[Rfam]
RNA sequence: GGAGGCGUGCGGUUGGCUGGUGCUGCCCCCGGUCUUCAACACCGGUGAGGUCCAGGAUCUGGGCCUGGUGGGUUCGAUUCCCAUCCGCCUCC
Numbered sequence: 001g002g003a004g005g006c007g008u009g010c011g012g013u014u015g016g017c018u019g020g021u022g023c024u025g026c027c028c029c030c031g032g033u034c035u036u037c038a039a040c041a042c043c044g045g046u047g048a049g050g051u052c053c054a055g056g057a058u059c060u061g062g063g064c065c066u067g068g069u070g071g072g073u074u075c076g077a078u079u080c081c082c083a084u085c086c087g088c089c090u091c092c
Stems, first nucleotide, its partner, number of pairs: 001092007009084001012027001014025004029045005048066005069083004

About this RNA: Rfam assigns this 92-nucleotide RNA sequence from a Frankiaceae bacterium to the family "Selenocysteine transfer RNA". Rfam 15.1 lists 4,211 matches to the family in 3,344 species. Clan: tRNA clan. For this family Rfam cites "Eukaryotic selenocysteine tRNA has the 9/4 secondary structure" (Mizutani and Goto, FEBS Lett, 2000). The source organism's lineage runs through Bacteria, Bacillati, Actinomycetota, Actinomycetes and Frankiaceae.